[Rfam]
RNA sequence: UGGCCCAUCGGGGCUGCGGAUACCUGGUUUCAUUAUU
Numbered sequence: 001u002g003g004c005c006c007a008u009c010g011g012g013g014c015u016g017c018g019g020a021u022a023c024c025u026g027g028u029u030u031c032a033u034u035a036u037u
Base pairs, nucleotide, nucleotide: 003014004013005012006011017026018025019024
Record summary
Shown here is a 37-nucleotide RNA sequence, a member of the family "XIST RNA A repeat". The sequence is in the family's curated seed alignment. Rfam 15.1 lists 900 matches to the family in 145 species. By type it is a small RNA.